[Rfam]
The family of this 114-nucleotide sequence is "DUF3800-I RNA". Rfam describes the family as follows. Actinobacteria, Firmicutes, Fusobacteria, Proteobacteria (1 example), Tenericutes (2 examples). The family's RNA type in Rfam is small RNA.
RNA sequence: UAGAGGUACAGAUAGAGAUAUACUGUUUACAUUCAAUGUUUGAUGUUCUAUUAAGCGUACUGUAGUACGCCGACUUGAAUGGGUAGCUGCCAUUGGUGGCUAUUUUUUUACAUU
Numbered sequence: 001u002a003g004a005g006g007u008a009c010a011g012a013u014a015g016a017g018a019u020a021u022a023c024u025g026u027u028u029a030c031a032u033u034c035a036a037u038g039u040u041u042g043a044u045g046u047u048c049u050a051u052u053a054a055g056c057g058u059a060c061u062g063u064a065g066u067a068c069g070c071c072g073a074c075u076u077g078a079a080u081g082g083g084u085a086g087c088u089g090c091c092a093u094u095g096g097u098g099g100c101u102a103u104u105u106u107u108u109u110a111c112a113u114u
Base pairs, nucleotide, nucleotide: 008026009025010024011023012021013020014019030081031080032079033078034077035076040073041072042071043051044050045049055070056069057068058067059066060065082104083103084102085101086100087099088098089097090096091095